[Rfam]
RNA: Small Cajal body specific RNA 4
Organism: Echinops telfairi
RNA sequence: ACUGGAGGACUAAGAAGGCUGAGUCUGAUGAAGCAAGGCUCUGCUGAUACACUCCUCCUAGACAAAAGGGGUGGAGAGAGCAGCCCUUAUGGAGAACAUCACAGGGCUGACUUUACUACCCAACAUUU
Numbered sequence: 001a002c003u004g005g006a007g008g009a010c011u012a013a014g015a016a017g018g019c020u021g022a023g024u025c026u027g028a029u030g031a032a033g034c035a036a037g038g039c040u041c042u043g044c045u046g047a048u049a050c051a052c053u054c055c056u057c058c059u060a061g062a063c064a065a066a067a068g069g070g071g072u073g074g075a076g077a078g079a080g081c082a083g084c085c086c087u088u089a090u091g092g093a094g095a096a097c098a099u100c101a102c103a104g105g106g107c108u109g110a111c112u113u114u115a116c117u118a119c120c121c122a123a124c125a126u127u128u
Stems, first nucleotide, its partner, number of pairs: 002061002004058006017045003021041006068121003079112002081109007090101003